This 68-nucleotide RNA from Rhodococcus sp. RD6.2 belongs to the Rfam family "ASdes TB sRNA". NCBI's taxonomy places the organism under Bacteria, Actinomycetes, Mycobacteriales, Nocardiaceae, Rhodococcus.
RNA sequence: AGGGCGACGGGGUCCACACCGCGGGUGACGGUGAGGUAGUCGCGCAUCACGAUGCCGUGCCGGUUCUC
Numbered sequence: 001a002g003g004g005c006g007a008c009g010g011g012g013u014c015c016a017c018a019c020c021g022c023g024g025g026u027g028a029c030g031g032u033g034a035g036g037u038a039g040u041c042g043c044g045c046a047u048c049a050c051g052a053u054g055c056c057g058u059g060c061c062g063g064u065u066c067u068c
Stems, first nucleotide, its partner, number of pairs: 005062002008059002012029002015027003035056004040052003044048001

It scores 79 bits against the family's covariance model.